[Rfam]
Description: The family of this 54-nucleotide RNA sequence from Electrophorus electricus is "UnaL2 LINE 3' element". The organism belongs to Electrophorus, within Eukaryota. On this family, see Baba et al., RNA 2004: "Solution structure of an RNA stem-loop derived from the 3' conserved region of eel LINE UnaL2". The base pairs follow the family's consensus structure, which is taken from published work.

RNA sequence: ACAAAGCACUUUUGUAAGUCUCUCUGGAUGAGAGUGUCUGCUAAAUGCCGUAAA
Numbered sequence: 001a002c003a004a005a006g007c008a009c010u011u012u013u014g015u016a017a018g019u020c021u022c023u024c025u026g027g028a029u030g031a032g033a034g035u036g037u038c039u040g041c042u043a044a045a046u047g048c049c050g051u052a053a054a
Stems, first nucleotide, its partner, number of pairs: 013043001014041003020036001022034004